[Rfam]
A member of the RNA family "Small nucleolar RNA SNORA9" from Astyanax mexicanus, 136 nucleotides long.
Rfam 15.1 lists 1,202 matches to the family in 518 species.
From the family's description: ACA9 is a member of the H/ACA class of snoRNA that guide the sites of modification of uridines to pseudouridines.
Rfam classes the family as an H/ACA-box small nucleolar RNA.
NCBI's taxonomy places the organism under Eukaryota, Eumetazoa, Osteoglossocephalai, Otophysi, Astyanax.
RNA sequence: GUGCAGGCUGUUCAGCAAGGCUUGGUCUACUCUACUGUGACUCUGUCCUUUCCUGUAUGUCUGCUAGAGAGAUGUUGAGGUGGUUUGAGGCCUGGCUGUGUUGUCUAUAGCAAGGUUAUAGAAACCUCAUACAAAU
Numbered sequence: 001g002u003g004c005a006g007g008c009u010g011u012u013c014a015g016c017a018a019g020g021c022u023u024g025g026u027c028u029a030c031u032c033u034a035c036u037g038u039g040a041c042u043c044u045g046u047c048c049u050u051u052c053c054u055g056u057a058u059g060u061c062u063g064c065u066a067g068a069g070a071g072a073u074g075u076u077g078a079g080g081u082g083g084u085u086u087g088a089g090g091c092c093u094g095g096c097u098g099u100g101u102u103g104u105c106u107a108u109a110g111c112a113a114g115g116u117u118a119u120a121g122a123a124a125c126c127u128c129a130u131a132c133a134a135a136u
Base pairs, nucleotide, nucleotide: 003064004063005062006061007060008059018049019048020047024042025041026040027039076129077128078127079126080125091115092114093113095111096110098108099107100106